RNA sequence: UGGCUAUAGCCAAAUCAAAUCGAGGAGAAGCUAACUGGCCGGUUGUUGCGAGUUUCGUCAACAAAUCUGCUUACCGAGCUUCUCACAUUU
Number, nucleotide and partner (000 for none) at each position: 001u000002g000003g000004c000005u000006a000007u000008a000009g000010c000011c000012a000013a000014a000015u000016c000017a000018a000019a000020u000021c000022g000023a000024g000025g084026a083027g082028a081029a080030g079031c078032u077033a000034a000035c000036u000037g071038g070039c069040c000041g067042g066043u065044u064045g062046u061047u060048g059049c000050g000051a000052g000053u000054u000055u000056c000057g000058u000059c048060a047061a046062c045063a000064a044065a043066u042067c041068u000069g039070c038071u037072u000073a000074c000075c000076g000077a032078g031079c030080u029081u028082c027083u026084c025085a000086c000087a000088u000089u000090u000
This 90-nucleotide sequence from Lotus japonicus belongs to the Rfam family "Small nucleolar RNA snoR109".
Rfam links the family to the GO terms RNA processing and nucleolus.
NCBI's taxonomy places the organism under Eukaryota, Viridiplantae, Euphyllophyta, Fabaceae, Lotus.
It is annotated as an H/ACA-box small nucleolar RNA.
For this family Rfam cites "Experimental RNomics: identification of 140 candidates for small non-messenger RNAs in the plant Arabidopsis thaliana" (Marker et al., Curr Biol, 2002).
It is one of the family's seed sequences.
The family has 6 seed sequences and 680 matches in Rfam 15.1.